The record is a 38-nucleotide RNA sequence from Capsicum baccatum, which matches "Plastid psbT antisense RNA" in Rfam. Plastid-psbT-asRNA is an antisense RNA (asRNA) motif reported in Plastids It has been shown that psbT expression is controlled by two antisense RNAs originated from psbN transcription by the nuclear-encoded polymerase (NEP), in which the short antisense RNA hybridizes to psbT CDS, thereby stabilizing psbT transcript while blocking its translation during photooxidative stress. The source organism's lineage runs through Eukaryota, Spermatophyta, asterids, Solanales and Capsicum.
[Rfam]
RNA sequence: GUAGUUGGAUCUCCAACUUUUUGGAAUGCCCUAAAUUC
Numbered sequence: 001g002u003a004g005u006u007g008g009a010u011c012u013c014c015a016a017c018u019u020u021u022u023g024g025a026a027u028g029c030c031c032u033a034a035a036u037u038c
Base pairs, nucleotide, nucleotide: 003018004017005016006015007014008013020035021034022033023032024031
Dot-bracket structure: ..((((((....)))))).(((((......)))))...